[Rfam]
A member of the RNA family "Small nucleolar RNA SNORD113/SNORD114 family" from Myotis lucifugus, 75 nucleotides long. Rfam's curators write: The imprinted human domain at 14q32 contains two clusters of tandemly repeated small nucleolar RNAs named 14q(I) and 14q(II) snoRNAs. These two clusters are named SNORD113 and SNORD114 respectively in the HGNC approved gene symbol nomenclature. Rfam links the family to the GO terms nucleolus and RNA processing. Rfam 15.1 lists 5,721 matches to the family in 142 species. It scores 43 bits against the family's covariance model. The family's RNA type in Rfam is C/D-box small nucleolar RNA. The family's consensus secondary structure is taken from published work.
RNA sequence: UGGAUCAAUGAUGAUACCUGCCGGCGUGAUGAGUCACCAUGACACAUAAUGCAUGUCUGAGACGCUGAGGUCCAC
Numbered sequence: 001u002g003g004a005u006c007a008a009u010g011a012u013g014a015u016a017c018c019u020g021c022c023g024g025c026g027u028g029a030u031g032a033g034u035c036a037c038c039a040u041g042a043c044a045c046a047u048a049a050u051g052c053a054u055g056u057c058u059g060a061g062a063c064g065c066u067g068a069g070g071u072c073c074a075c
Stems, first nucleotide, its partner, number of pairs: 002073005